[Rfam]
RNA: small nucleolar RNA snoR114
Organism: Lupinus angustifolius
RNA sequence: GAACUGUGAUGAUACUUUGUGCAGUUUGUGUUAGAUGGGUCUUUCACUAACGUCCUUCGACGAAACAAGCACAUCUGAGUUC
Number, nucleotide and partner (000 for none) at each position: 001g082002a081003a080004c079005u000006g000007u000008g000009a000010u000011g000012a000013u000014a000015c000016u000017u000018u000019g000020u000021g000022c000023a000024g000025u000026u000027u000028g000029u000030g000031u000032u000033a000034g000035a000036u000037g000038g000039g000040u000041c000042u000043u000044u000045c000046a000047c000048u000049a000050a000051c000052g000053u000054c000055c000056u000057u000058c000059g000060a000061c000062g000063a000064a000065a000066c000067a000068a000069g000070c000071a000072c000073a000074u000075c000076u000077g000078a000079g004080u003081u002082c001